[Rfam]
A member of the RNA family "Fluoride riboswitch aptamer (crcB RNA motif)" from Cohnella sp. CIP 111063, 61 nucleotides long. Its family is annotated with positive regulation of gene expression and response to fluoride in the Gene Ontology. Pairs were carried over by alignment from the consensus structure, which is taken from published work. Lineage of the source: Bacteria > Bacillati > Bacillota > Caryophanales > Cohnella.
RNA sequence: AACCGAAUAGGCGAUGGAGUUCGCCAUUAACCGCCUUAGUGCUAAUAACUCCUACCAAUGU
Numbered sequence: 001a002a003c004c005g006a007a008u009a010g011g012c013g014a015u016g017g018a019g020u021u022c023g024c025c026a027u028u029a030a031c032c033g034c035c036u037u038a039g040u041g042c043u044a045a046u047a048a049c050u051c052c053u054a055c056c057a058a059u060g061u
Stems, first nucleotide, its partner, number of pairs: 010025004016052006033042002